RNA sequence: UGGCUAUAAAAUAACUUAUUCGGUAGCCACUUUGAGUUACAAUAAUUACUAUGUUAAUUUAUAAGAUUAUAGUAACUCUUACUAAGUGGUUUACUAUAACGUUAUGGUACGGUAAAUAUCUCCAUGUGUUAUAGUAACAUAACUAUCGUAAAUAUGUAUUGAUAUUAUCGUAAAGUAGUAUAUAAAAUUAUCGUAAAUGGAGGAAUAACUUAUUUUUGUAGCUG
Numbered sequence: 001u002g003g004c005u006a007u008a009a010a011a012u013a014a015c016u017u018a019u020u021c022g023g024u025a026g027c028c029a030c031u032u033u034g035a036g037u038u039a040c041a042a043u044a045a046u047u048a049c050u051a052u053g054u055u056a057a058u059u060u061a062u063a064a065g066a067u068u069a070u071a072g073u074a075a076c077u078c079u080u081a082c083u084a085a086g087u088g089g090u091u092u093a094c095u096a097u098a099a100c101g102u103u104a105u106g107g108u109a110c111g112g113u114a115a116a117u118a119u120c121u122c123c124a125u126g127u128g129u130u131a132u133a134g135u136a137a138c139a140u141a142a143c144u145a146u147c148g149u150a151a152a153u154a155u156g157u158a159u160u161g162a163u164a165u166u167a168u169c170g171u172a173a174a175g176u177a178g179u180a181u182a183u184a185a186a187a188u189u190a191u192c193g194u195a196a197a198u199g200g201a202g203g204a205a206u207a208a209c210u211u212a213u214u215u216u217u218g219u220a221g222c223u224g
Stems, first nucleotide, its partner, number of pairs: 001224009010214005016208005030203004037196004042191006050182007058174005065169003069165003074159001079151004086146006092136011106121002
Dot-bracket structure: ((((((((((((((.(((((.........((((...((((.((((((..(((((((.(((((..(((.(((..(....((((...(((((((((((((((((...((............))....)))))))))))....)))))).)))).......)...))).)))))))).)))))))...)))))).))))...))))))))).))))).)))))))))
Rfam assigns this 224-nucleotide sequence from Miscanthus lutarioriparius to the family "MIR6217 microRNA precursor family". Lineage of the source: Eukaryota > Tracheophyta > Spermatophyta > Panicoideae > Miscanthus.